[Rfam]
RNA sequence: GCCGGUCCUCGGUAGUGGCUUCCGGGUGCGGACGGCGAGUACGCCGCGCAGCCCGGGUGCUUCGAUCGAAGACCGGC
Numbered sequence: 001g002c003c004g005g006u007c008c009u010c011g012g013u014a015g016u017g018g019c020u021u022c023c024g025g026g027u028g029c030g031g032a033c034g035g036c037g038a039g040u041a042c043g044c045c046g047c048g049c050a051g052c053c054c055g056g057g058u059g060c061u062u063c064g065a066u067c068g069a070a071g072a073c074c075g076g077c
Stems, first nucleotide, its partner, number of pairs: 001077007009069005017061003021057006027050003
The record is a 77-nucleotide RNA sequence from Sphaerisporangium melleum, which matches "Actino-pnp RNA" in Rfam. Lineage of the source: Bacteria > Bacillati > Actinomycetota > Actinomycetes > Sphaerisporangium. It scores 65 bits against the family's covariance model. Pairs were carried over by alignment from the consensus structure, which is taken from published work.